This 74-nucleotide sequence from Araneus ventricosus belongs to the Rfam family "mir-124 microRNA precursor family". It scores 60 bits against the family's covariance model.
RNA sequence: GACUCUCUGUAUUCACUGUUGGGCCUCUAUGUUUCUGUUUUACAUCAUAAGGCACGCGGUGAAUGCCAAGAGAU
Dot-bracket structure: ..((((..((((((((.((....(((.((((..............)))))))...)).))))))))..))))..